[Rfam]
RNA sequence: AUAUGCUAGAUGGGUGUGAGGCGUUGGAUUGGUUUCACUCAAUUCGAGCCCUACAUUCAUCAGGGAUUCGU
Numbered sequence: 001a002u003a004u005g006c007u008a009g010a011u012g013g014g015u016g017u018g019a020g021g022c023g024u025u026g027g028a029u030u031g032g033u034u035u036c037a038c039u040c041a042a043u044u045c046g047a048g049c050c051c052u053a054c055a056u057u058c059a060u061c062a063g064g065g066a067u068u069c070g071u
Stems, first nucleotide, its partner, number of pairs: 004066001006064002009061010020050003024047009